[Rfam]
RNA sequence: AUAUUCCCCAUUGGGGGACGGAUGAGAACCUUCGACCAAGGUUCGAGUCGAGCAACGCGAGACAACGUCGCGCUCGCGCGACGGCCCGAAGGGCGAGGAACGAAGUGACGAGUAAUCCUUCCCCCACCACCA
Numbered sequence: 001a002u003a004u005u006c007c008c009c010a011u012u013g014g015g016g017g018a019c020g021g022a023u024g025a026g027a028a029c030c031u032u033c034g035a036c037c038a039a040g041g042u043u044c045g046a047g048u049c050g051a052g053c054a055a056c057g058c059g060a061g062a063c064a065a066c067g068u069c070g071c072g073c074u075c076g077c078g079c080g081a082c083g084g085c086c087c088g089a090a091g092g093g094c095g096a097g098g099a100a101c102g103a104a105g106u107g108a109c110g111a112g113u114a115a116u117c118c119u120u121c122c123c124c125c126a127c128c129a130c131c132a
Base pairs, nucleotide, nucleotide: 015123016122017121018120020118021117023115033095034094036093037092042090043089044088045087049059050058066083067082068081069080070079071078
Notes: Rfam assigns this 132-nucleotide sequence from Sodalis ligni to the family "RtT RNA". By type it is a cis-regulatory element. Rfam describes the family as follows. This family represents a bacterial cis-regulatory element known as RtT RNA. The exact function of RtT is unknown although it is thought that it may be involved in changing the cellular response in relation to amino acid starvation. Its family is annotated with cellular response to amino acid starvation in the Gene Ontology. The organism belongs to Sodalis, within Bacteria. The family's consensus secondary structure is taken from published work.